[Rfam]
RNA sequence: UCCCUGCUUUUCCUCCCUGAGCAGGAGCCUGAACGUGAUGACAGCGUUAAGGCUUUUGAGCCCCAAUCUUCUGGUUGGGGCUUUUUCUU
Numbered sequence: 001u002c003c004c005u006g007c008u009u010u011u012c013c014u015c016c017c018u019g020a021g022c023a024g025g026a027g028c029c030u031g032a033a034c035g036u037g038a039u040g041a042c043a044g045c046g047u048u049a050a051g052g053c054u055u056u057u058g059a060g061c062c063c064c065a066a067u068c069u070u071c072u073g074g075u076u077g078g079g080g081c082u083u084u085u086u087c088u089u
Stems, first nucleotide, its partner, number of pairs: 003025006027053004032048005060081008

Annotation
Rfam assigns this 89-nucleotide RNA from Rhizobacter terrae to the family "Burkholderia RNA 7 (anti-hemB)". Taxonomically the source falls in Rhizobacter (Bacteria, Pseudomonadati, Burkholderiales, Sphaerotilaceae). Rfam 15.1 lists 479 matches to the family in 458 species. Gene Ontology terms of the family: protein binding and bacterial biofilm matrix. From the family's description: This RNA motif was identified by computational search in b-proteobacteria Burkholderia.